[Rfam]
RNA sequence: AAUGAUGGUUUCGACGCUUUUCAUUAUAGAUCUUAUGGGACUUUUUUCUACAACAAAAUAGGCUCCAUAAUAUACAUAGGGGAUUUACCCACUACAAAUAUUAUAGAGCC
Numbered sequence: 001a002a003u004g005a006u007g008g009u010u011u012c013g014a015c016g017c018u019u020u021u022c023a024u025u026a027u028a029g030a031u032c033u034u035a036u037g038g039g040a041c042u043u044u045u046u047u048c049u050a051c052a053a054c055a056a057a058a059u060a061g062g063c064u065c066c067a068u069a070a071u072a073u074a075c076a077u078a079g080g081g082g083a084u085u086u087a088c089c090c091a092c093u094a095c096a097a098a099u100a101u102u103a104u105a106g107a108g109c110c
Stems, first nucleotide, its partner, number of pairs: 001025005008017002028043002031040002061110005067104007077094003081090002
This 110-nucleotide sequence from Streptococcus downei belongs to the Rfam family "Streptococcus RNA 266".
The literature on the family includes a 2012 paper in RNA by Acebo et al., "Identification of 88 regulatory small RNAs in the TIGR4 strain of the human pathogen Streptococcus pneumoniae".
The match comes from Rfam's covariance-model search (106 bits).